[Rfam]
RNA sequence: UCAAUCCUGAUGUGUACGUCUGCUACAUUCGUUUUGACCGAACACUUAUAUAAAUGGGAGCCCGAAUAGGUUUUCAUAUUGCGUGCAUGCCCCUGAAAAGGGGAAGCAUAAUAAUAUAUGGAACAGGGCACCCACCUGCCUUGAGCGGGAUCAAAACAAAAAAAACAGACGGCACAAUUGGGAUUGAU
Numbered sequence: 001u002c003a004a005u006c007c008u009g010a011u012g013u014g015u016a017c018g019u020c021u022g023c024u025a026c027a028u029u030c031g032u033u034u035u036g037a038c039c040g041a042a043c044a045c046u047u048a049u050a051u052a053a054a055u056g057g058g059a060g061c062c063c064g065a066a067u068a069g070g071u072u073u074u075c076a077u078a079u080u081g082c083g084u085g086c087a088u089g090c091c092c093c094u095g096a097a098a099a100g101g102g103g104a105a106g107c108a109u110a111a112u113a114a115u116a117u118a119u120g121g122a123a124c125a126g127g128g129c130a131c132c133c134a135c136c137u138g139c140c141u142u143g144a145g146c147g148g149g150a151u152c153a154a155a156a157c158a159a160a161a162a163a164a165a166c167a168g169a170c171g172g173c174a175c176a177a178u179u180g181g182g183a184u185u186g187a188u
Stems, first nucleotide, its partner, number of pairs: 002186010012175004017171003031157007038149002056133003060129004067123001073122007085107002090103004

The record is a 188-nucleotide RNA sequence from Lentibacillus sp. CBA3610, which matches "6S / SsrS RNA" in Rfam. It is annotated as a non-coding RNA gene. For this family Rfam cites "6S RNA is a widespread regulator of eubacterial RNA polymerase that resembles an open promoter" (Barrick et al., RNA, 2005). The base pairs follow the family's consensus structure, which is taken from published work. It scores 103 bits against the family's covariance model. The organism belongs to Lentibacillus, within Bacteria.